RNA sequence: GGGCAUUCAGAAGGUUUGCACUCUGGGCUACAAGCAGAGAACCUGGUUUCUCCCCCCCCCCGCCCAGGGGAAAGUCCCCGGACCCGUGGCAGAAAGUGCCCUUGGUUGAACCCAAGCUCGGGCUGUGCUCCGUCAUCCUUGAGCUGAGACGUUCAUCUGAACAGAGCUCGGCGAUCGCAGCCCGACCUCUGUCAGCAUUGAUAGUAAUGCAAACAAGUUGCAUCAACUCAACGGGGCUCAUUCUCCGAAUGCA
Number, nucleotide and partner (000 for none) at each position: 001g000002g000003g252004c251005a250006u249007u248008c247009a000010g245011a244012a000013g000014g214015u213016u212017u211018g210019c209020a000021c000022u068023c067024u066025g065026g064027g063028c062029u000030a000031c000032a000033a000034g000035c000036a000037g052038a051039g050040a049041a048042c000043c000044u000045g000046g000047u000048u041049u040050c039051u038052c037053c000054c000055c000056c000057c000058c000059c000060c000061c000062g028063c027064c026065c025066a024067g023068g022069g000070g000071a000072a000073a238074g237075u000076c236077c235078c234079c233080g000081g000082a000083c000084c000085c000086g000087u000088g100089g099090c098091a097092g000093a000094a000095a000096g000097u091098g090099c089100c088101c116102u115103u114104g113105g112106u000107u000108g000109a000110a000111c000112c105113c104114a103115a102116g101117c000118u185119c184120g183121g000122g181123c180124u179125g178126u177127g176128c000129u000130c000131c173132g172133u171134c000135a000136u000137c000138c000139u000140u000141g169142a168143g167144c166145u000146g000147a000148g000149a000150c000151g162152u161153u160154c159155a000156u000157c000158u000159g154160a153161a152162c151163a000164g000165a000166g144167c143168u142169c141170g000171g133172c132173g131174a000175u000176c127177g126178c125179a124180g123181c122182c000183c120184g119185a118186c000187c000188u000189c000190u000191g000192u000193c000194a000195g000196c000197a000198u000199u000200g000201a000202u000203a000204g000205u000206a000207a000208u000209g019210c018211a017212a016213a015214c014215a000216a223217g000218u000219u000220g000221c000222a000223u216224c000225a000226a000227c000228u000229c000230a000231a000232c000233g079234g078235g077236g076237c074238u073239c000240a000241u000242u000243c000244u011245c010246c000247g008248a007249a006250u005251g004252c003253a000
RNase MRP: a 253-nucleotide sequence from Kryptolebias marmoratus.
Rfam classes the family as a ribozyme.